[Rfam]
RNA sequence: GAUAUCUCAAUUCAAUGCACUCAUAUAACCCUGAUAAUAUGGUUCAGGGGUCUCUACCGGGAAGCCGUAAACUUCCCUGGCUAUGGGUGUAACACUUUAAAGA
Numbered sequence: 001g002a003u004a005u006c007u008c009a010a011u012u013c014a015a016u017g018c019a020c021u022c023a024u025a026u027a028a029c030c031c032u033g034a035u036a037a038u039a040u041g042g043u044u045c046a047g048g049g050g051u052c053u054c055u056a057c058c059g060g061g062a063a064g065c066c067g068u069a070a071a072c073u074u075c076c077c078u079g080g081c082u083a084u085g086g087g088u089g090u091a092a093c094a095c096u097u098u099a100a101a102g103a
Base pairs, nucleotide, nucleotide: 018089019088020087021086022085023084024083025082029049030048031047032046033045034044058079059077060076061075062074063073064072
RNA: Purine riboswitch aptamer
Organism: Calorimonas adulescens